[Rfam]
RNA sequence: CCUGCGAGCCACUUAAUCCACACACAUACCGACACGUUUUUCUGGGUGCCCUGCGGGGUUGAAAGGCGGGGUAUGUGGAGGCUUAAC
Numbered sequence: 001c002c003u004g005c006g007a008g009c010c011a012c013u014u015a016a017u018c019c020a021c022a023c024a025c026a027u028a029c030c031g032a033c034a035c036g037u038u039u040u041u042c043u044g045g046g047u048g049c050c051c052u053g054c055g056g057g058g059u060u061g062a063a064a065g066g067c068g069g070g071g072u073a074u075g076u077g078g079a080g081g082c083u084u085a086a087c
Base pairs, nucleotide, nucleotide: 023077024076025075026074027073028072029071030070035068036067037066038065039064040063041062042061048059049058050057051056